[Rfam]
RNA sequence: AGAGCAUUGAGAGGACCUUUCCCUAGUACGAGAGGACUGGGAAGGACGCACCUCUGGUGUACCAGUUAUCGUGCCCACGGUAAACGCUGGGUAGCCAAGUGCGGAGCGGAUAACUGCUGAAAGCAUCUAAGUAGCAAGCCCACCCCAAGAUGAGUGCUCUCUUAUUCCGACUUCCCCAGAGCCCCCGGUAGCACAGCCGAGACAGCGACGGGUUCUCUGUCCCUGCGGGGAUGGAGCGACAGAAGUAUUGAGAAUCCAAGAUAAGGUCACGGCGAGACGAGCCGUUUAUCAUUACGAUAGGUGUCAAGUGGAAGUGCAGUGAUGUAUGCAGCUGAGGCAUCCUAACAGACCGAGAGA
Dot-bracket structure: ((((((((..(.((..(((((((...............))))))).(((((...(((....((((((((((......)))))...)))))....))).)))))..(.((....(((((...........)))))....))).)).)......))))))))........................................................................................................(((((((((.......)))))............((((((((.((.....(((((....)))))....))..))))).)))...))))......